[Rfam]
RNA sequence: GCAAUCCGAUUGGGGUGCCCCCCGGCCAUGCCGGCGGGCUGAGAUCAUACCCAUAGAACCUGACGCGGCUCGUACCGCCGGAGGAAAUUCGGACCCUGCGGGCU
Numbered sequence: 001g002c003a004a005u006c007c008g009a010u011u012g013g014g015g016u017g018c019c020c021c022c023c024g025g026c027c028a029u030g031c032c033g034g035c036g037g038g039c040u041g042a043g044a045u046c047a048u049a050c051c052c053a054u055a056g057a058a059c060c061u062g063a064c065g066c067g068g069c070u071c072g073u074a075c076c077g078c079c080g081g082a083g084g085a086a087a088u089u090c091g092g093a094c095c096c097u098g099c100g101g102g103c104u
Base pairs, nucleotide, nucleotide: 006092007091008090009089011053012052013051014050016047017039018038019037020036059084060083061082065078066077067076068075
RNA: TPP riboswitch aptamer (THI element)